RNA sequence: GGGCGGUUGGUGUAGUGGUUAACAUAUCUGCCUUCCAAGCAGGUGACAUGGGUUCGAUUCCCGUACCGCUCA
Numbered sequence: 001g002g003g004c005g006g007u008u009g010g011u012g013u014a015g016u017g018g019u020u021a022a023c024a025u026a027u028c029u030g031c032c033u034u035c036c037a038a039g040c041a042g043g044u045g046a047c048a049u050g051g052g053u054u055c056g057a058u059u060c061c062c063g064u065a066c067c068g069c070u071c072a
Stems, first nucleotide, its partner, number of pairs: 001071007010025004027043005048064005
RNA: tRNA